[Rfam]
RNA sequence: GAUUUUAACUGAAAAAGUCAUCAACAACAAAGUUGUAUAACUCAUCAAUAUCUAUAACUUUUAUUUUGCUCAUUUUUUCAUCCGACAAAGUGAUAGUAAUAUUGUUCACAAAAUUUACAUAUCUCUCUUAUAGUUUAUAAAACCAUAAAUGAGAUAGGUAAAUUUUGUGAACAAUGUUACUAUCACUUUGUCGGAUGAAGAAAUAACCAAAAUAAAAGUUAUAGAUUUUGAUGAGUUAUACAAUGUGGUUGUUGAUAACUUUUUCAUUUGAUAUC
Numbered sequence: 001g002a003u004u005u006u007a008a009c010u011g012a013a014a015a016a017g018u019c020a021u022c023a024a025c026a027a028c029a030a031a032g033u034u035g036u037a038u039a040a041c042u043c044a045u046c047a048a049u050a051u052c053u054a055u056a057a058c059u060u061u062u063a064u065u066u067u068g069c070u071c072a073u074u075u076u077u078u079c080a081u082c083c084g085a086c087a088a089a090g091u092g093a094u095a096g097u098a099a100u101a102u103u104g105u106u107c108a109c110a111a112a113a114u115u116u117a118c119a120u121a122u123c124u125c126u127c128u129u130a131u132a133g134u135u136u137a138u139a140a141a142a143c144c145a146u147a148a149a150u151g152a153g154a155u156a157g158g159u160a161a162a163u164u165u166u167g168u169g170a171a172c173a174a175u176g177u178u179a180c181u182a183u184c185a186c187u188u189u190g191u192c193g194g195a196u197g198a199a200g201a202a203a204u205a206a207c208c209a210a211a212a213u214a215a216a217a218g219u220u221a222u223a224g225a226u227u228u229u230g231a232u233g234a235g236u237u238a239u240a241c242a243a244u245g246u247g248g249u250u251g252u253u254g255a256u257a258a259c260u261u262u263u264u265c266a267u268u269u270g271a272u273a274u275c
Base pairs, nucleotide, nucleotide: 014262015261016260017259018258020256021255023253024252026250027249030246032244033243034242035241036240037239038238039237040236041235042234044232045231046230047229048228050226051225052224053223055221056220057219058218059217060216061215062214063213064212065211066210067209070206072204073203074202075201077199078198079197080196081195083193084192085191086190087189088188089187090186091185092184094182095181096180097179098178099177101175102174103173104172105171106170107169108168109167110166111165112164114162115161117159118158120156121155122154131145133143134142135141136140
This 275-nucleotide RNA sequence from Oryza meridionalis belongs to the Rfam family "MIR821 microRNA precursor family".
Rfam 15.1 lists 1,438 matches to the family in 13 species.
On this family, see Luo et al., FEBS Lett 2006: "Rice embryogenic calli express a unique set of microRNAs, suggesting regulatory roles of microRNAs in plant post-embryogenic development".